[Rfam]
RNA sequence: AAAAGAGUAAAGCUCAUGCGUUAAGUGCUUGUAGAUGGGAUGUUGCUACAAGACGAAAUAAUCUUUAUGCGAUAUGGGCUUGCAUCCGCUAUU
Dot-bracket structure: ((.((....((((((((((((...((.(((((((...[[[[[...)))))))))...((((...))))))).))))))))).]]]]].)).))

Background
Rfam assigns this 93-nucleotide RNA sequence from Suicoccus acidiformans to the family "THF (Tetrahydrofolate) riboswitch aptamer". A search with the family's covariance model found it, with a score of 75 bits. Rfam's curators write: Tetrahydrofolate (THF) riboswitch was first reported for Ames et al. as an RNA motif in 5' untranslated (5'-UTR)regions of folate transport and biosynthesis genes in Firmicutes genomes. Gene Ontology term of the family: tetrahydrofolate metabolic process.